[Rfam]
Fungal signal recognition particle RNA: a 267-nucleotide RNA from Piedraia hortae. It is annotated as a non-coding RNA gene. Clan: SRP clan.
RNA sequence: UAGCUGUAAUGGCUCAACGGUGAAGAGCUGGCUUAGCAAUCAACCCUAACGGGGGAUUUACCCCACAGUUGGACGUGCCCAGUUCGAACUCGGUGGAGGCUUGUCCACUCGCUUCGGUAACGAGCGAUGCUGGUGCAGCCCUAAGAUCCUGGAGCACCCUUCAGCCGAGCAAUCGGGCAGAGAACUUCAGACCAUGGAGUGGCGGUAUUGGAUCACACGUUUGAUUGAUGGGCUGAGAGUUGGAUAUACCGGUUGCAACGCCAAUUU
Numbered sequence: 001u002a003g004c005u006g007u008a009a010u011g012g013c014u015c016a017a018c019g020g021u022g023a024a025g026a027g028c029u030g031g032c033u034u035a036g037c038a039a040u041c042a043a044c045c046c047u048a049a050c051g052g053g054g055g056a057u058u059u060a061c062c063c064c065a066c067a068g069u070u071g072g073a074c075g076u077g078c079c080c081a082g083u084u085c086g087a088a089c090u091c092g093g094u095g096g097a098g099g100c101u102u103g104u105c106c107a108c109u110c111g112c113u114u115c116g117g118u119a120a121c122g123a124g125c126g127a128u129g130c131u132g133g134u135g136c137a138g139c140c141c142u143a144a145g146a147u148c149c150u151g152g153a154g155c156a157c158c159c160u161u162c163a164g165c166c167g168a169g170c171a172a173u174c175g176g177g178c179a180g181a182g183a184a185c186u187u188c189a190g191a192c193c194a195u196g197g198a199g200u201g202g203c204g205g206u207a208u209u210g211g212a213u214c215a216c217a218c219g220u221u222u223g224a225u226u227g228a229u230g231g232g233c234u235g236a237g238a239g240u241u242g243g244a245u246a247u248a249c250c251g252g253u254u255g256c257a258a259c260g261c262c263a264a265u266u267u
Stems, first nucleotide, its partner, number of pairs: 002014003016265001019262004025254002028251001030249001040243005046237002049234001051064001053063003066227012079211005084205003088200004093195004099140001101138004105133003109127005115122002141145001149190006159182003166175003